The family of this 156-nucleotide sequence from Microcaecilia unicolor is "MIR7725 microRNA precursor family". Its family is annotated with RISC complex and miRNA-mediated post-transcriptional gene silencing in the Gene Ontology. Taxonomically the source falls in Microcaecilia (Eukaryota, Bilateria, Chordata, Craniata).

[Rfam]
RNA sequence: CGCAGCGUCAGGGAAGGAGGCGGCGCUCCCGACGUCUAGCCUUCCCUUCGCUGUGUUCCGCCUUCUUCUGACGUCAAUGAUGACGUCAGAAGAAGGCGGAACACAGCGAAGGGAAGGCUAGACGUCGGGAGCGCCGCAUCCUUCCCUGACGCUGCG
Numbered sequence: 001c002g003c004a005g006c007g008u009c010a011g012g013g014a015a016g017g018a019g020g021c022g023g024c025g026c027u028c029c030c031g032a033c034g035u036c037u038a039g040c041c042u043u044c045c046c047u048u049c050g051c052u053g054u055g056u057u058c059c060g061c062c063u064u065c066u067u068c069u070g071a072c073g074u075c076a077a078u079g080a081u082g083a084c085g086u087c088a089g090a091a092g093a094a095g096g097c098g099g100a101a102c103a104c105a106g107c108g109a110a111g112g113g114a115a116g117g118c119u120a121g122a123c124g125u126c127g128g129g130a131g132c133g134c135c136g137c138a139u140c141c142u143u144c145c146c147u148g149a150c151g152c153u154g155c156g
Base pairs, nucleotide, nucleotide: 002155003154005152006151007150008149009148010147012145013144014143015142016141017140018139020137021136022135023134024133025132026131027130028129029128030127031126032125033124034123036121037120038119039118040117041116042115044113045112046111047110048109049108050107051106052105053104054103055102057100058099060097061096062095064093065092066091067090068089069088070087071086072085073084074083075082076081